[Rfam]
RNA sequence: AUCCAAGGUGAUUCUCUCUCUAAGGGGACGAUUCAUGCCCUUCUCGGGAAAGUAGUCACUUUGAAUAAAAUCUGGCAUGCCUAAGGUCUUUGGAGGACAGGGCAUGCUUAUUUCCUUUGCCUUUCUUGGGCCGGUCACAUGU
Numbered sequence: 001a002u003c004c005a006a007g008g009u010g011a012u013u014c015u016c017u018c019u020c021u022a023a024g025g026g027g028a029c030g031a032u033u034c035a036u037g038c039c040c041u042u043c044u045c046g047g048g049a050a051a052g053u054a055g056u057c058a059c060u061u062u063g064a065a066u067a068a069a070a071u072c073u074g075g076c077a078u079g080c081c082u083a084a085g086g087u088c089u090u091u092g093g094a095g096g097a098c099a100g101g102g103c104a105u106g107c108u109u110a111u112u113u114c115c116u117u118u119g120c121c122u123u124u125c126u127u128g129g130g131c132c133g134g135u136c137a138c139a140u141g142u
Stems, first nucleotide, its partner, number of pairs: 002064002005061003010056001019049003023042005073134001075132001078130001080128001084124002092115001094113003
RNA: Small nucleolar RNA SNORA67